[Rfam]
RNA sequence: UGUAUCCUUCGGGGCAGGGUGAGGCCAUGAGGCCAAUUCCUGAUCGGUGGUGACGCAGUUCUUAUGGGAGCGGCGAAGUCCACGAGCCAAGGUUUCUCCGGUGUAUGGGGCUGUUUCGUUGUUGCAGGACGAAUCAGUUUCCAAGGACGGGGGAGAUGGGCAGGAACUGGUGUGAAUCCAGUACCGACGGUAUAGUCCGGAUGAAAGAGGGAGCCA
Dot-bracket structure: ....((((((......(((...................))).[[((((((...........................[[))))....(.......................................................................).....(((((.......)))))]])).(((....]]))).......))))))....
Numbered sequence: 001u002g003u004a005u006c007c008u009u010c011g012g013g014g015c016a017g018g019g020u021g022a023g024g025c026c027a028u029g030a031g032g033c034c035a036a037u038u039c040c041u042g043a044u045c046g047g048u049g050g051u052g053a054c055g056c057a058g059u060u061c062u063u064a065u066g067g068g069a070g071c072g073g074c075g076a077a078g079u080c081c082a083c084g085a086g087c088c089a090a091g092g093u094u095u096c097u098c099c100g101g102u103g104u105a106u107g108g109g110g111c112u113g114u115u116u117c118g119u120u121g122u123u124g125c126a127g128g129a130c131g132a133a134u135c136a137g138u139u140u141c142c143a144a145g146g147a148c149g150g151g152g153g154a155g156a157u158g159g160g161c162a163g164g165a166a167c168u169g170g171u172g173u174g175a176a177u178c179c180a181g182u183a184c185c186g187a188c189g190g191u192a193u194a195g196u197c198c199g200g201a202u203g204a205a206a207g208a209g210g211g212a213g214c215c216a
Stems, first nucleotide, its partner, number of pairs: 005212006017041003043196002045186002047083004078184002088160001166182005188199003